Rfam assigns this 131-nucleotide RNA from Oryzias latipes to the family "Small nucleolar RNA SNORA69". NCBI's taxonomy places the organism under Eukaryota, Eumetazoa, Actinopterygii, Actinopteri, Oryzias. U69 is a member of the H/ACA class of small nucleolar RNAs (snoRNAs) which act as guides in the the modification of uridines to pseudouridines. Rfam links the family to the GO terms nucleolus and RNA processing.
[Rfam]
Nucleotides: 131
Base pairs, nucleotide, nucleotide: 003058004057005056006055007054008053019044020043021042022041023040024039025038026037069125070124071122072121073120075118076117077116078115079114088110089109090108091107093105094104095103096102
Number, partner (000 for none) and nucleotide at each position: 001000a002000a003058a004057g005056c006055a007054g008053g009000u010000c011000u012000g013000c014000a015000a016000u017000u018000g019044c020043a021042g022041c023040a024039c025038u026037c027000c028000a029000u030000g031000u032000u033000g034000g035000u036000u037026g038025a039024g040023u041022g042021c043020u044019g045000u046000c047000a048000u049000u050000a051000a052000c053008c054007c055006u056005g057004c058003u059000g060000a061000g062000a063000g064000a065000a066000u067000a068000c069125u070124u071122g072121c073120u074000g075118u076117g077116g078115a079114g080000c081000u082000c083000c084000u085000g086000c087000u088110c089109c090108u091107c092000c093105u094104c095103a096102c097000u098000g099000c100000u101000a102096g103095u104094g105093a106000u107091g108090a109089g110088g111000a112000c113000g114079c115078u116077c117076u118075g119000a120073g121072g122071c123000u124070g125069a126000a127000c128000a129000c130000c131000u

Record summary
The family's RNA type in Rfam is H/ACA-box small nucleolar RNA.